RNA sequence: UCCUGUAUUCGAAAGUGAUCGUGGGCUGCCUUUGCCCUGGUCAUUGAUAGUGCAGGGAGAGGAAUCAAUGAAAGCGCUUCCCCGUGUUUGAAGGGUCCACUCCUAUCCCUUCCAAACUCUGGAGCUUUCGUACA
Dot-bracket structure: (((((((((....((((((((.((((.......))))))))))))...))))))))).........(.(((((((..........((((((((((...........))))).)))))......))))))))...
The record is a 134-nucleotide sequence, which matches "Small nucleolar RNA SNORA71" in Rfam. On this family, see Ganot et al., Genes Dev 1997: "The family of box ACA small nucleolar RNAs is defined by an evolutionarily conserved secondary structure and ubiquitous sequence elements essential for RNA accumulation". Rfam's curators write: The members of this family belong to the H/ACA class of snoRNAs which bind a number of proteins (including dyskerin, Gar1p and Nop10p) to form snoRNP complexes. This class of snoRNAs are thought to guide the sites of modification of uridines to pseudouridines by forming direct base pairing interactions with substrate RNAs. This family includes U71 (SNORA71), ACA39 (SNORA39) and ACA60 (SNORA60). U71 and ACA60 are predicted to guide the pseudouridylation of U406 and U1004 in 18S rRNA respectively. There is currently no target RNA identified for ACA39. Rfam's curators put it in the seed alignment. The family's consensus secondary structure was predicted with PFOLD. Gene Ontology terms of the family: nucleolus and RNA processing.